[Rfam]
RNA sequence: GGAGCACCGGAUGGACGCUGGCCGGCGAGUUUUCGCCCGCCGGCGAUUUUGUC
Numbered sequence: 001g002g003a004g005c006a007c008c009g010g011a012u013g014g015a016c017g018c019u020g021g022c023c024g025g026c027g028a029g030u031u032u033u034c035g036c037c038c039g040c041c042g043g044c045g046a047u048u049u050u051g052u053c
Stems, first nucleotide, its partner, number of pairs: 016045007025036004